[Rfam]
Shown here is a 102-nucleotide RNA sequence from Pontibacillus litoralis, a member of the family "Purine riboswitch aptamer".
NCBI's taxonomy places the organism under Bacteria, Bacillati, Caryophanales, Pontibacillus, Pontibacillus litoralis.
It scores 86 bits against the family's covariance model.
Pairs were carried over by alignment from the consensus structure, which is taken from published work.
The literature on the family includes a 2003 paper in Cell by Mandal et al., "Riboswitches Control Fundamental Biochemical Pathways in Bacillus subtilis and Other Bacteria".
RNA sequence: AUAAAAUUAUAUGUAAACCGUCGUAUAAUAUUAGGGAUAAGGCCUGAGAGUUUCUACCGGACUACCGUAAAUGGUCCGACUACGAGGUGAAUUGCUUGUUUG
Numbered sequence: 001a002u003a004a005a006a007u008u009a010u011a012u013g014u015a016a017a018c019c020g021u022c023g024u025a026u027a028a029u030a031u032u033a034g035g036g037a038u039a040a041g042g043c044c045u046g047a048g049a050g051u052u053u054c055u056a057c058c059g060g061a062c063u064a065c066c067g068u069a070a071a072u073g074g075u076c077c078g079a080c081u082a083c084g085a086g087g088u089g090a091a092u093u094g095c096u097u098g099u100u101u102g
Stems, first nucleotide, its partner, number of pairs: 019087001021085005029049001031047005058078007